[Rfam]
RNA: mir-3473 microRNA precursor family
RNA sequence: ACUGCUGAGCCAUCUCUCCAGCCCUAUAUAUUUACUUUUAAUUAAAAAUUUUAAGUAGGGGGCUGGAGAGAUGGCUCAGCAGU
Numbered sequence: 001a002c003u004g005c006u007g008a009g010c011c012a013u014c015u016c017u018c019c020a021g022c023c024c025u026a027u028a029u030a031u032u033u034a035c036u037u038u039u040a041a042u043u044a045a046a047a048a049u050u051u052u053a054a055g056u057a058g059g060g061g062g063c064u065g066g067a068g069a070g071a072u073g074g075c076u077c078a079g080c081a082g083u
Stems, first nucleotide, its partner, number of pairs: 002082023